[Rfam]
Nucleotides: 082
Base pairs, nucleotide, nucleotide: 002081003080004079005078006077007076
Number, partner (000 for none) and nucleotide at each position: 001000u002081u003080u004079g005078g006077g007076a008000a009000a010000u011000g012000a013000u014000g015000c016000u017000a018000u019000a020000u021000a022000a023000u024000c025000a026000g027000a028000c029000a030000u031000a032000g033000g034000u035000u036000g037000a038000a039000a040000c041000u042000c043000u044000g045000c046000u047000g048000a049000a050000g051000u052000u053000a054000u055000u056000g057000u058000a059000u060000u061000u062000g063000c064000a065000c066000g067000u068000c069000a070000g071000u072000c073000u074000g075000a076007u077006c078005c079004c080003a081002a082000u